[Rfam]
RNA sequence: AGGCAACUUCCUCGAUACGAUUAUAUGGCGUGAGAGGUGUUAUACUACUCGUAAAUUAAAUUCUUUUGCUCUUCAGAUUUGCUGAGAUUUUUUCUCUGAAGCUGGUCUAGUAAGCUCUAGUACAUU
Numbered sequence: 001a002g003g004c005a006a007c008u009u010c011c012u013c014g015a016u017a018c019g020a021u022u023a024u025a026u027g028g029c030g031u032g033a034g035a036g037g038u039g040u041u042a043u044a045c046u047a048c049u050c051g052u053a054a055a056u057u058a059a060a061u062u063c064u065u066u067u068g069c070u071c072u073u074c075a076g077a078u079u080u081g082c083u084g085a086g087a088u089u090u091u092u093u094c095u096c097u098g099a100a101g102c103u104g105g106u107c108u109a110g111u112a113a114g115c116u117c118u119a120g121u122a123c124a125u126u
Base pairs, nucleotide, nucleotide: 002041003040004039005038007037008036009034011032013030014029016027017026063120064119068115069114070113075108076107077106078105079104081102082101083100086094087093

The family of this 126-nucleotide RNA from Lupinus angustifolius is "Small nucleolar RNA snoR77". NCBI's taxonomy places the organism under Eukaryota, Streptophyta, Embryophyta, Mesangiospermae, Lupinus. The family has 5 seed sequences and 649 matches in Rfam 15.1. It is annotated as an H/ACA-box small nucleolar RNA. The family's consensus secondary structure was predicted with WAR. For this family Rfam cites "Experimental RNomics: identification of 140 candidates for small non-messenger RNAs in the plant Arabidopsis thaliana" (Marker et al., Curr Biol, 2002).